RNA sequence: GUGCAUCCGGUAAGAAUUGAACCUACGAAUUCUCCAAUUAUGAGUUGGGUGCUGUAACCAUUAAGCCAUGGAUGC
Numbered sequence: 001g002u003g004c005a006u007c008c009g010g011u012a013a014g015a016a017u018u019g020a021a022c023c024u025a026c027g028a029a030u031u032c033u034c035c036a037a038u039u040a041u042g043a044g045u046u047g048g049g050u051g052c053u054g055u056a057a058c059c060a061u062u063a064a065g066c067c068a069u070g071g072a073u074g075c
Base pairs, nucleotide, nucleotide: 003075004074005073006072007071008070010026011025012024014022040069041068042067044066045065046064048062049061050060051059
Notes: This 75-nucleotide RNA sequence from Daucus carota belongs to the Rfam family "Plastid-ycf2 5UTR RNA". It is annotated as a cis-regulatory element. Plastid ycf2 is a non-coding RNA (ncRNA) recognised in plastids. The literature on the family includes a 2023 paper in Plant Commun by Richter et al., "Retrograde signaling in plants: A critical review focusing on the GUN pathway and beyond". It scores 87 bits against the family's covariance model.